[Rfam]
RNA sequence: UGCACGGGCCGGGCCCCUCUGGCGUGCAACCUGAAAAUGCACGUGAUGUCGGACCGUAUCG
Numbered sequence: 001u002g003c004a005c006g007g008g009c010c011g012g013g014c015c016c017c018u019c020u021g022g023c024g025u026g027c028a029a030c031c032u033g034a035a036a037a038u039g040c041a042c043g044u045g046a047u048g049u050c051g052g053a054c055c056g057u058a059u060c061g
Base pairs, nucleotide, nucleotide: 006055007054009052010051011050012049022044023043024042025041026040027039028038

terC RNA: a 61-nucleotide sequence from Altererythrobacter ishigakiensis. Taxonomically the source falls in Altererythrobacter (Bacteria, Alphaproteobacteria, Sphingomonadales, Erythrobacteraceae). A search with the family's covariance model found it, with a score of 57 bits.